The record is a 106-nucleotide RNA sequence from Albula goreensis, which matches "Vault RNA" in Rfam.
The organism belongs to Albula, within Eukaryota.
On this family, see Stadler et al., Mol Biol Evol 2009: "Evolution of Vault RNAs".
From the family's description: This family of RNAs are found as part of the enigmatic vault ribonucleoprotein complex. The complex consists of a major vault protein (MVP), two minor vault proteins (VPARP and TEP1), and several small untranslated RNA molecules. It has been suggested that the vault complex is involved in drug resistance.
By type it is a non-coding RNA gene.
[Rfam]
RNA sequence: GCGUUGGUGUAGCUCAGUGGUUACAUCGUAUGUCAAUCGUUCGGUUUCGCCUUUCUUACUUCACCCCCUUCGGAGAGUCGAACCACGGUCGCCGUCCGGCGUUUUC
Numbered sequence: 001g002c003g004u005u006g007g008u009g010u011a012g013c014u015c016a017g018u019g020g021u022u023a024c025a026u027c028g029u030a031u032g033u034c035a036a037u038c039g040u041u042c043g044g045u046u047u048c049g050c051c052u053u054u055c056u057u058a059c060u061u062c063a064c065c066c067c068c069u070u071c072g073g074a075g076a077g078u079c080g081a082a083c084c085a086c087g088g089u090c091g092c093c094g095u096c097c098g099g100c101g102u103u104u105u106c
Stems, first nucleotide, its partner, number of pairs: 002101006012090001014088002017086004026081003